[Rfam]
Overview:
A member of the RNA family "Small nucleolar RNA SNORA9" from Aotus nancymaae, 136 nucleotides long. The base pairs follow the family's consensus structure, which was predicted with PFOLD. Its family is annotated with RNA processing and nucleolus in the Gene Ontology. By type it is an H/ACA-box small nucleolar RNA.
RNA sequence: UUGCAAAUCAUCCAGCAUGCUUGGGUUUAGGGUGACCCAGUGCGUUCCUGCAGUGCUUGCUUAGCAUGUUCUGAAAUGGUUUCAGGUCAUGCUCUGUCCCUUCUUCAGAGCAUGGUCAUAGACAUCUUACAUGGUU
Numbered sequence: 001u002u003g004c005a006a007a008u009c010a011u012c013c014a015g016c017a018u019g020c021u022u023g024g025g026u027u028u029a030g031g032g033u034g035a036c037c038c039a040g041u042g043c044g045u046u047c048c049u050g051c052a053g054u055g056c057u058u059g060c061u062u063a064g065c066a067u068g069u070u071c072u073g074a075a076a077u078g079g080u081u082u083c084a085g086g087u088c089a090u091g092c093u094c095u096g097u098c099c100c101u102u103c104u105u106c107a108g109a110g111c112a113u114g115g116u117c118a119u120a121g122a123c124a125u126c127u128u129a130c131a132u133g134g135u136u
Base pairs, nucleotide, nucleotide: 003060004059005058006057009055018044019043020042023038024037025036026035027034072129073128074127076125087115088114089113090112091111092110094108095107096106

The family is grouped with related families in Rfam's "SNORA9 clan". Taxonomically the source falls in Aotus (Eukaryota, Chordata, Vertebrata, Boreoeutheria). ACA9 is a member of the H/ACA class of snoRNA that guide the sites of modification of uridines to pseudouridines. The family has 36 seed sequences and 1,202 matches in Rfam 15.1.